[Rfam]
Rfam assigns this 93-nucleotide RNA from Centaurea solstitialis to the family "Small nucleolar RNA snoR109". The base pairs follow the family's consensus structure, which was predicted with WAR. For this family Rfam cites "Experimental RNomics: identification of 140 candidates for small non-messenger RNAs in the plant Arabidopsis thaliana" (Marker et al., Curr Biol, 2002). The family has 6 seed sequences and 680 matches in Rfam 15.1. The match comes from Rfam's covariance-model search (79 bits).
RNA sequence: CGGCUGUAGCUACAUUAAUGGCAGAUGAAGUUUUACUGGCCGGUUGUCGUUUAAUUUCAGUCGACAAAUCUGCUUACCGAACUUCAUACAUAU
Numbered sequence: 001c002g003g004c005u006g007u008a009g010c011u012a013c014a015u016u017a018a019u020g021g022c023a024g025a026u027g028a029a030g031u032u033u034u035a036c037u038g039g040c041c042g043g044u045u046g047u048c049g050u051u052u053a054a055u056u057u058c059a060g061u062c063g064a065c066a067a068a069u070c071u072g073c074u075u076a077c078c079g080a081a082c083u084u085c086a087u088a089c090a091u092a093u
Stems, first nucleotide, its partner, number of pairs: 025087008038074003042070004046065004